U2 spliceosomal RNA: a 203-nucleotide sequence from Chara braunii. The source organism's lineage runs through Eukaryota, Viridiplantae, Streptophytina, Charales and Chara. Its family is annotated with pre-mRNA branch point binding, U2 snRNP and mRNA branch site recognition in the Gene Ontology. It scores 115 bits against the family's covariance model. The family has 208 seed sequences and 71,512 matches in Rfam 15.1. Pairs were carried over by alignment from the consensus structure, which is taken from published work. Clan: U2 clan. The family's RNA type in Rfam is spliceosomal small nuclear RNA.

RNA sequence: GUUCCUGGCCAACAGCCUUUUGGCUAAGAUCAAGUGCAUUGUAUCUUUUCUGAUCAGUUUAAUAUCUGAUCCGUGAUCCAACGGGCCACACGAUAUUAAAUUAACUUUUCUGGGCCAGGAGGGGUCGUAUGGGUAAGCUUGCUUAUUCGACCCCUCCAGUGUUGCCUCUGUAUUGCACUGCAGCAGAGUGCGGCACAGCCAUU
Numbered sequence: 001g002u003u004c005c006u007g008g009c010c011a012a013c014a015g016c017c018u019u020u021u022g023g024c025u026a027a028g029a030u031c032a033a034g035u036g037c038a039u040u041g042u043a044u045c046u047u048u049u050c051u052g053a054u055c056a057g058u059u060u061a062a063u064a065u066c067u068g069a070u071c072c073g074u075g076a077u078c079c080a081a082c083g084g085g086c087c088a089c090a091c092g093a094u095a096u097u098a099a100a101u102u103a104a105c106u107u108u109u110c111u112g113g114g115c116c117a118g119g120a121g122g123g124g125u126c127g128u129a130u131g132g133g134u135a136a137g138c139u140u141g142c143u144u145a146u147u148c149g150a151c152c153c154c155u156c157c158a159g160u161g162u163u164g165c166c167u168c169u170g171u172a173u174u175g176c177a178c179u180g181c182a183g184c185a186g187a188g189u190g191c192g193g194c195a196c197a198g199c200c201a202u203u
Stems, first nucleotide, its partner, number of pairs: 003029002014025004052071006073089003077085003119156008134145004159196006166188006